[Rfam]
RNA sequence: GACCGAAAAUAGCACACUUGACGAAAGUCAAGGUCGCAAAGCCGCGGGUCUAAGGUUCUAUGGAACGAUGACAGCCGGGCUGCCGAA
Numbered sequence: 001g002a003c004c005g006a007a008a009a010u011a012g013c014a015c016a017c018u019u020g021a022c023g024a025a026a027g028u029c030a031a032g033g034u035c036g037c038a039a040a041g042c043c044g045c046g047g048g049u050c051u052a053a054g055g056u057u058c059u060a061u062g063g064a065a066c067g068a069u070g071a072c073a074g075c076c077g078g079g080c081u082g083c084c085g086a087a
Stems, first nucleotide, its partner, number of pairs: 012037002017032006040081004045077003048072003055066004
Background:
The family of this 87-nucleotide sequence from Paenibacillus cellulosilyticus is "c-di-GMP-I riboswitch aptamer". A search with the family's covariance model found it, with a score of 85 bits.